[Rfam]
RNA sequence: GCUUAGUUGCUGGUAAAACGGAACCAAGUCGGGUGUUUGCGAGAGGUUUGGUCCCUUUCAACCAGCUACUGCGC
Numbered sequence: 001g002c003u004u005a006g007u008u009g010c011u012g013g014u015a016a017a018a019c020g021g022a023a024c025c026a027a028g029u030c031g032g033g034u035g036u037u038u039g040c041g042a043g044a045g046g047u048u049u050g051g052u053c054c055c056u057u058u059c060a061a062c063c064a065g066c067u068a069c070u071g072c073g074c
Stems, first nucleotide, its partner, number of pairs: 004071003009066006017058002020054003024051007

About this RNA:
Shown here is a 74-nucleotide RNA from Danio rerio, a member of the family "mir-133 microRNA precursor family". Gene Ontology terms of the family: miRNA-mediated post-transcriptional gene silencing and RISC complex. It is one of the family's seed sequences. The source organism's lineage runs through Eukaryota, Gnathostomata, Neopterygii, Cypriniformes and Danio.